[Rfam]
RNA sequence: GUGGAAUUGGCGUAGUUGGUUAACGCGCCAGAUUGUGGUUCUGGAGAUCGAGGGUUCGAAUCCCUCAUUCCACC
Number, nucleotide and partner (000 for none) at each position: 001g073002u072003g071004g070005a069006a068007u067008u000009g000010g026011c025012g024013u023014a000015g000016u000017u000018g000019g000020u000021u000022a000023a013024c012025g011026c010027g000028c044029c043030a042031g041032a040033u000034u000035g000036u000037g000038g000039u000040u032041c031042u030043g029044g028045a000046g000047a000048u000049c000050g066051a065052g064053g063054g062055u000056u000057c000058g000059a000060a000061u000062c054063c053064c052065u051066c050067a007068u006069u005070c004071c003072a002073c001074c000

Rfam assigns this 74-nucleotide RNA from a Lachnospiraceae bacterium to the family "tRNA". The organism belongs to Lachnospiraceae, within Bacteria. It scores 70 bits against the family's covariance model.